R2 RNA element: a 127-nucleotide RNA sequence from Ignelater luminosus.
This family represents the 3' UTR region of the R2 retrotransposable element. This family is known to interact with the R2-encoded reverse transcriptase in a reaction known as target primed reverse transcription (TPRT).
It scores 43 bits against the family's covariance model.
Its family is annotated with regulation of reverse transcription in the Gene Ontology.
RNA sequence: UUUGUUAGUUUAGAGACAGGGGAGGGUUUUUUAGUCCGUAGGUCACUGAGUUUUCUCAGUGGAGUCGGGCAUACCACGCCGUACGGGCGGCGUGGCAUCCAUGAGGAUUUUUCCCUACCCUCGUAAA
Dot-bracket structure: (((((.............((((.(((.......(((((....((((((((....))))))))...))))).(.((((..............)))).)...............)))..)))).)))))
For this family Rfam cites "Reverse transcription of R2Bm RNA is primed by a nick at the chromosomal target site: a mechanism for non-LTR retrotransposition" (Luan et al., Cell, 1993).